Shown here is a 50-nucleotide RNA sequence from Enterovibrio norvegicus, a member of the family "L31-Gammaproteobacteria ribosomal protein leader".
The literature on the family includes a 2020 paper in BMC Microbiol by Eckert and Weinberg, "Discovery of 20 novel ribosomal leader candidates in bacteria and archaea".
Lineage of the source: Bacteria > Pseudomonadota > Vibrionales > Enterovibrio > Enterovibrio norvegicus.

RNA sequence: CGUGUGGUGCCCGAUAGGCUCGGGAGAGCGACACGGCCUAUAUUAGAGGU
Number, nucleotide and partner (000 for none) at each position: 001c035002g034003u033004g032005u031006g000007g029008u028009g000010c024011c023012c022013g021014a020015u000016a000017g000018g000019c000020u014021c013022g012023g011024g010025a000026g000027a000028g008029c007030g000031a005032c004033a003034c002035g001036g000037c000038c000039u000040a000041u000042a000043u000044u000045a000046g000047a000048g000049g000050u000